[Rfam]
RNA sequence: GCCAUACUACGGUGCAUCAUGGUGGAAAGUAAACGAUGACCCAUAGGGAACUCUGGGGUAAAAUACGUAUCAAAAUGCAAAACCGCCAGGCCCAGGGUUUCCUCCGGGUCAGGUUUCUUU
Numbered sequence: 001g002c003c004a005u006a007c008u009a010c011g012g013u014g015c016a017u018c019a020u021g022g023u024g025g026a027a028a029g030u031a032a033a034c035g036a037u038g039a040c041c042c043a044u045a046g047g048g049a050a051c052u053c054u055g056g057g058g059u060a061a062a063a064u065a066c067g068u069a070u071c072a073a074a075a076u077g078c079a080a081a082a083c084c085g086c087c088a089g090g091c092c093c094a095g096g097g098u099u100u101c102c103u104c105c106g107g108g109u110c111a112g113g114u115u116u117c118u119u120u
Stems, first nucleotide, its partner, number of pairs: 001040001003038003010035002014030002041048002057071004086113002089110005095104002

The family of this 120-nucleotide RNA from Erwinia sp. 198 is "Enterobacteria greA leader".
Rfam links the family to the GO term regulation of gene expression.
The literature on the family includes a 2010 paper in Genome Biol by Naville and Gautheret, "Premature terminator analysis sheds light on a hidden world of bacterial transcriptional attenuation".
The organism belongs to Erwinia, within Bacteria.